[Rfam]
RNA: Whalefall-1 RNA
RNA sequence: GUCCCCCCCCUGGGGGGGGGGCUGAGCUCUGCCAUUGAGAAGAGAUUUGGGGGAGGAU
Numbered sequence: 001g002u003c004c005c006c007c008c009c010c011u012g013g014g015g016g017g018g019g020g021g022c023u024g025a026g027c028u029c030u031g032c033c034a035u036u037g038a039g040a041a042g043a044g045a046u047u048u049g050g051g052g053g054a055g056g057a058u
Stems, first nucleotide, its partner, number of pairs: 004021007024047002027044004032039001